Source information: The record is a 52-nucleotide RNA sequence, which matches "L31-Actinobacteria ribosomal protein leader" in Rfam. Rfam classes the family as a cis-regulatory leader. The literature on the family includes a 2020 paper in BMC Microbiol by Eckert and Weinberg, "Discovery of 20 novel ribosomal leader candidates in bacteria and archaea".
[Rfam]
Nucleotides: 052
Stems, first nucleotide, its partner, number of pairs: 003052003007047004015041005023036003
Number, partner (000 for none) and nucleotide at each position: 001000c002000a003052g004051g005050u006000u007047c008046c009045g010044g011000u012000u013000c014000a015041c016040g017039u018038c019037c020000g021000a022000u023036u024035a025034c026000a027000a028000g029000c030000u031000u032000c033000a034025g035024u036023a037019g038018g039017g040016c041015g042000a043000c044010c045009c046008g047007g048000c049000g050005a051004c052003c
Rfam's curators put it in the seed alignment.